The family of this 142-nucleotide RNA from Tyto alba is "Small nucleolar RNA SNORA12".
Rfam 15.1 lists 571 matches to the family in 378 species.
Rfam classes the family as an H/ACA-box small nucleolar RNA.
Its family is annotated with RNA processing and nucleolus in the Gene Ontology.
A reference for the family is Gu et al. (2005), "A novel experimental approach for systematic identification of box H/ACA snoRNAs from eukaryotes", Nucleic Acids Res.
Rfam's curators write: U108 belongs to the H/ACA family of snoRNAs. The sequence is predicted to guide the pseudouridylation of the U372 residue in the 28S rRNA subunit. However it has not been reported as a pseudouridylation site.

[Rfam]
RNA sequence: UAUUGUGGUAGUUUCUGUACUGGGCAGAUCUGUGACAGUAUCAGAGCGGCCUUAAACUACCACAGAGAUCACAAAGGAGCAGUCUGUGCUGAGAACUUUUUCAGUCUUUGAGUUUUCAGCUUUUUGUUCAGCUCCUACAGAA
Numbered sequence: 001u002a003u004u005g006u007g008g009u010a011g012u013u014u015c016u017g018u019a020c021u022g023g024g025c026a027g028a029u030c031u032g033u034g035a036c037a038g039u040a041u042c043a044g045a046g047c048g049g050c051c052u053u054a055a056a057c058u059a060c061c062a063c064a065g066a067g068a069u070c071a072c073a074a075a076g077g078a079g080c081a082g083u084c085u086g087u088g089c090u091g092a093g094a095a096c097u098u099u100u101u102c103a104g105u106c107u108u109u110g111a112g113u114u115u116u117c118a119g120c121u122u123u124u125u126g127u128u129c130a131g132c133u134c135c136u137a138c139a140g141a142a
Stems, first nucleotide, its partner, number of pairs: 005063007023051003027047001029045004076135005103125002
NCBI's taxonomy places the organism under Eukaryota, Opisthokonta, Euteleostomi, Sauria, Tyto.